[Rfam]
RNA sequence: CUUUCUUCGUCACCAGUGUGUGACAAGAAGA
Number, nucleotide and partner (000 for none) at each position: 001c000002u030003u029004u028005c027006u026007u025008c000009g024010u023011c022012a021013c020014c018015a000016g000017u000018g014019u000020g013021u012022g011023a010024c009025a007026a006027g005028a004029a003030g002031a000